[Rfam]
RNA sequence: GUUGAGGGGAAUGUUAUCUGGUUCAAGACCGACUUUUUUCAAACAUUUGGAUCUACUUGUUGGCUUCAAGAUCAUCGAUCGAAAGAUCUCAGUUGUUUCUUAACAAAGCUUAAUCUAUGUUCUUGGACCAGGCUUCAUUCCCCUUAAU
Numbered sequence: 001g002u003u004g005a006g007g008g009g010a011a012u013g014u015u016a017u018c019u020g021g022u023u024c025a026a027g028a029c030c031g032a033c034u035u036u037u038u039u040c041a042a043a044c045a046u047u048u049g050g051a052u053c054u055a056c057u058u059g060u061u062g063g064c065u066u067c068a069a070g071a072u073c074a075u076c077g078a079u080c081g082a083a084a085g086a087u088c089u090c091a092g093u094u095g096u097u098u099c100u101u102a103a104c105a106a107a108g109c110u111u112a113a114u115c116u117a118u119g120u121u122c123u124u125g126g127a128c129c130a131g132g133c134u135u136c137a138u139u140c141c142c143c144u145u146a147a148u
Stems, first nucleotide, its partner, number of pairs: 001148013017132005024125005

A member of the RNA family "mir-166 microRNA precursor family" from Hibiscus syriacus, 148 nucleotides long.
NCBI's taxonomy places the organism under Eukaryota, Magnoliopsida, rosids, Malvaceae, Hibiscus.
About the family: This family represents the plant microRNA (miRNA) precursor mir-166.
For this family Rfam cites "MicroRNAs in plants" (Reinhart et al., Genes Dev, 2002).